[Rfam]
The family of this 75-nucleotide RNA from Callithrix jacchus is "mir-320 microRNA precursor family". Pairs were carried over by alignment from the consensus structure, which was predicted with RNAalifold. On this family, see Berezikov et al., Genome Res 2006: "Many novel mammalian microRNA candidates identified by extensive cloning and RAKE analysis". Its family is annotated with long-term synaptic potentiation, positive regulation of stem cell proliferation and cellular response to glucose stimulus in the Gene Ontology.
RNA sequence: AAUAUAGGACGACUUCUCUUCCCAAUUCUUCCCAGAGUUGGGAAAAGCUGGUUGAGAGGGCAAAAUAUAAAUAAU
Dot-bracket structure: .............(((((...(((....((((((....))))))....)))..))))).................